The family of this 57-nucleotide RNA sequence from Microvirga guangxiensis is "terC RNA". Pairs were carried over by alignment from the consensus structure, which is taken from published work.
RNA sequence: ACCGGGGUCCGGGCCCCUCUGGCAGUCUUCCCCAGGCUGUGAUGUCGGACUCUCUCA
Numbered sequence: 001a002c003c004g005g006g007g008u009c010c011g012g013g014c015c016c017c018u019c020u021g022g023c024a025g026u027c028u029u030c031c032c033c034a035g036g037c038u039g040u041g042a043u044g045u046c047g048g049a050c051u052c053u054c055u056c057a
Stems, first nucleotide, its partner, number of pairs: 006051007022040007
Dot-bracket structure: .....(((((((.........(((((((.....)))))))....)))))))......

By type it is a cis-regulatory element.